[Rfam]
RNA sequence: UUCUGUAAAUCGUAAAGCAUAUGAAAGUAUGUGACACAAAGCUAUAGGGUCUAAGGCUUAAUUAUAAGCUAUGACAGCCAGUUACCAGA
Dot-bracket structure: ...........((...((((((....))))))...))..((((...(((((....((((......))))...)))..))))))......

Rfam assigns this 89-nucleotide RNA from Vallitalea guaymasensis to the family "c-di-GMP-I riboswitch aptamer". Pairs were carried over by alignment from the consensus structure, which is taken from published work. The family has 155 seed sequences and 5,092 matches in Rfam 15.1. The match comes from Rfam's covariance-model search (73 bits). NCBI's taxonomy places the organism under Bacteria, Bacillati, Bacillota, Vallitaleaceae, Vallitalea.